The record is an 86-nucleotide RNA from Paracoccus aurantiacus, which matches "Singlet oxygen resistance RNA X" in Rfam. A search with the family's covariance model found it, with a score of 50 bits. The family's RNA type in Rfam is small RNA. SorX (RSs2461)like SorY is a singlet oxygen induced sRNA that counteracts oxidative stress by targeting mRNA for a transporter in Rhodobacter. It also has an impact on resistance against organic hydroperoxides. It targets SD sequence of potA mRNA via an aSD sequence. The aSD sequence and some neighbouring nucleotides are identical to the one of SorY (targets takP mRNA).
RNA sequence: GGUCUGCGAAGGCGAUGAUCGAGGCAACUCUUAUCUCCUUCACCUCCCUGUUGGACUUAGGCCGGGCUUCAUGCCCGGCUUUUUUU
Number, nucleotide and partner (000 for none) at each position: 001g000002g000003u000004c000005u000006g000007c000008g041009a040010a039011g038012g037013c000014g035015a034016u033017g032018a031019u000020c000021g000022a000023g000024g000025c000026a000027a000028c000029u000030c000031u018032u017033a016034u015035c014036u000037c012038c011039u010040u009041c008042a000043c000044c000045u000046c000047c000048c000049u000050g000051u000052u000053g000054g000055a000056c000057u000058u000059a000060g080061g079062c078063c077064g076065g075066g074067c073068u000069u000070c000071a000072u000073g067074c066075c065076c064077g063078g062079c061080u060081u000082u000083u000084u000085u000086u000